[Rfam]
RNA: Small nucleolar RNA SNORA75
RNA sequence: CCCUUCUCAAUGAGCUCCUUCCUGCCAACAAAUCCGUGGCAGCCUAUGGAUUCGCACGAGAAGAACAUUAACUGUUCAGUACUGGCACGCUCGUAACAUGACUCCAUCAGUUGCGAUUAGCCGCUACUGUUCUACAAGU
Numbered sequence: 001c002c003c004u005u006c007u008c009a010a011u012g013a014g015c016u017c018c019u020u021c022c023u024g025c026c027a028a029c030a031a032a033u034c035c036g037u038g039g040c041a042g043c044c045u046a047u048g049g050a051u052u053c054g055c056a057c058g059a060g061a062a063g064a065a066c067a068u069u070a071a072c073u074g075u076u077c078a079g080u081a082c083u084g085g086c087a088c089g090c091u092c093g094u095a096a097c098a099u100g101a102c103u104c105c106a107u108c109a110g111u112u113g114c115g116a117u118u119a120g121c122c123g124c125u126a127c128u129g130u131u132c133u134a135c136a137a138g139u
Stems, first nucleotide, its partner, number of pairs: 003063006014055002016050003022042005074132001077129003094110001099106002